[Rfam]
RNA sequence: AAUCACACAGAAGGAGUCUUCUCGUCAGCGUCGGUGGGUUCUGAAUUGCGUUCUGUCAUGGCAGCAUCUGGUGGAGUUGUGUUAGCGAAGGCACUGAAUCAUUCAGGAUUGGCAGCUCACGAAACAAUCUUUAUCCUUGCAAUGGCCAGUUUCAGGAUGAUACUCGCGCUUGACGUUGGAAGCAGCACCGGGACCCAUCUCGAGUUGGAGUCAAAGUUUCGUGCUUGUCUGAUGUUGCGAAAGACCCAUGCGUCGAGAUAACAUUUGCGAUCCUGAGUCGCAUUGAUGAGAUUGAGUUGUAUUUUUGGAUCCAAGGACAGGCCUGGUCGGAGGGUAGUCCAGGCUGUUCUCCUGCCUGAAAAUGGUCUGGAGGACGGCCCCCCGCUGUGAGG
Numbered sequence: 001a002a003u004c005a006c007a008c009a010g011a012a013g014g015a016g017u018c019u020u021c022u023c024g025u026c027a028g029c030g031u032c033g034g035u036g037g038g039u040u041c042u043g044a045a046u047u048g049c050g051u052u053c054u055g056u057c058a059u060g061g062c063a064g065c066a067u068c069u070g071g072u073g074g075a076g077u078u079g080u081g082u083u084a085g086c087g088a089a090g091g092c093a094c095u096g097a098a099u100c101a102u103u104c105a106g107g108a109u110u111g112g113c114a115g116c117u118c119a120c121g122a123a124a125c126a127a128u129c130u131u132u133a134u135c136c137u138u139g140c141a142a143u144g145g146c147c148a149g150u151u152u153c154a155g156g157a158u159g160a161u162a163c164u165c166g167c168g169c170u171u172g173a174c175g176u177u178g179g180a181a182g183c184a185g186c187a188c189c190g191g192g193a194c195c196c197a198u199c200u201c202g203a204g205u206u207g208g209a210g211u212c213a214a215a216g217u218u219u220c221g222u223g224c225u226u227g228u229c230u231g232a233u234g235u236u237g238c239g240a241a242a243g244a245c246c247c248a249u250g251c252g253u254c255g256a257g258a259u260a261a262c263a264u265u266u267g268c269g270a271u272c273c274u275g276a277g278u279c280g281c282a283u284u285g286a287u288g289a290g291a292u293u294g295a296g297u298u299g300u301a302u303u304u305u306u307g308g309a310u311c312c313a314a315g316g317a318c319a320g321g322c323c324u325g326g327u328c329g330g331a332g333g334g335u336a337g338u339c340c341a342g343g344c345u346g347u348u349c350u351c352c353u354g355c356c357u358g359a360a361a362a363u364g365g366u367c368u369g370g371a372g373g374a375c376g377g378c379c380c381c382c383c384g385c386u387g388u389g390a391g392g
Stems, first nucleotide, its partner, number of pairs: 192212003195208003214226004
RNA: Ascomycota telomerase RNA, nucleotides 1120 to 1511
Organism: Fusarium sp. NRRL 66182